[Rfam]
This 80-nucleotide RNA from Octopus sinensis belongs to the Rfam family "mir-981 microRNA precursor family". For this family Rfam cites "Evolution, biogenesis, expression, and target predictions of a substantially expanded set of Drosophila microRNAs" (Ruby et al., Genome Res, 2007). The organism belongs to Octopus, within Eukaryota.
RNA sequence: AGCUAUUUUGACGGGUUUCGUGACAGACGAGCAUGAAAUAUGUAUUUGUUCGUUGUCGACGAAACCUGCCUGAAAUAGCC
Number, nucleotide and partner (000 for none) at each position: 001a000002g079003c078004u077005a076006u075007u000008u000009u000010g000011a000012c068013g067014g066015g065016u064017u063018u062019c061020g060021u000022g000023a000024c000025a000026g000027a000028c000029g051030a050031g049032c048033a047034u000035g000036a000037a000038a000039u000040a000041u000042g000043u000044a000045u000046u000047u033048g032049u031050u030051c029052g000053u000054u000055g000056u000057c000058g000059a000060c020061g019062a018063a017064a016065c015066c014067u013068g012069c000070c000071u000072g000073a000074a000075a006076u005077a004078g003079c002080c000